[Rfam]
RNA sequence: UCCCGCCGCCCUUGCUGGGCGUUUCCUCCUUAGACUUCGCGGGCCGCAUCUUUUUGCGGCCCUUUUUCUUUGUCCAG
Numbered sequence: 001u002c003c004c005g006c007c008g009c010c011c012u013u014g015c016u017g018g019g020c021g022u023u024u025c026c027u028c029c030u031u032a033g034a035c036u037u038c039g040c041g042g043g044c045c046g047c048a049u050c051u052u053u054u055u056g057c058g059g060c061c062c063u064u065u066u067u068c069u070u071u072g073u074c075c076a077g
Stems, first nucleotide, its partner, number of pairs: 008020004041062008
Annotation:
Shown here is a 77-nucleotide sequence from Cohaesibacter sp. CAU 1516, a member of the family "Makes More Granules Regulator RNA (mmgR)". The pairing is the family consensus, mapped onto this sequence. It is annotated as a small RNA. The source organism's lineage runs through Bacteria, Pseudomonadati, Alphaproteobacteria, Hyphomicrobiales and Cohaesibacter. The match comes from Rfam's covariance-model search (62 bits).